[Rfam]
RNA: Flavo-1 RNA
RNA sequence: UCCUAGCCCCGAUUGAAGUGGAAAUCCUUUUUGCGCUUGCAAAGCGCAAAAAGAUUGCAACGAAAAGCGGGAAAAGGC
Numbered sequence: 001u002c003c004u005a006g007c008c009c010c011g012a013u014u015g016a017a018g019u020g021g022a023a024a025u026c027c028u029u030u031u032u033g034c035g036c037u038u039g040c041a042a043a044g045c046g047c048a049a050a051a052a053g054a055u056u057g058c059a060a061c062g063a064a065a066a067g068c069g070g071g072a073a074a075a076g077g078c
Stems, first nucleotide, its partner, number of pairs: 009070003013066002018061002023056004029051008